[Rfam]
Background:
The family of this 65-nucleotide RNA sequence from Eleutherodactylus coqui is "Small nucleolar RNA SNORD75". By type it is a C/D-box small nucleolar RNA. Lineage of the source: Eukaryota > Opisthokonta > Neobatrachia > Eleutherodactylus > Eleutherodactylus. The base pairs follow the family's consensus structure, which was predicted with RNAalifold. The literature on the family includes a 2002 paper in Mol Cell Biol by Galardi et al., "Purified box C/D snoRNPs are able to reproduce site-specific 2'-O-methylation of target RNA in vitro".

RNA sequence: AGCCGAUGAUGGUUAAAGAGUAGUGGACAGAAGUGGUUUCUGAAAACUUACAUAAAACUGAGGCU
Numbered sequence: 001a002g003c004c005g006a007u008g009a010u011g012g013u014u015a016a017a018g019a020g021u022a023g024u025g026g027a028c029a030g031a032a033g034u035g036g037u038u039u040c041u042g043a044a045a046a047c048u049u050a051c052a053u054a055a056a057a058c059u060g061a062g063g064c065u
Stems, first nucleotide, its partner, number of pairs: 001065004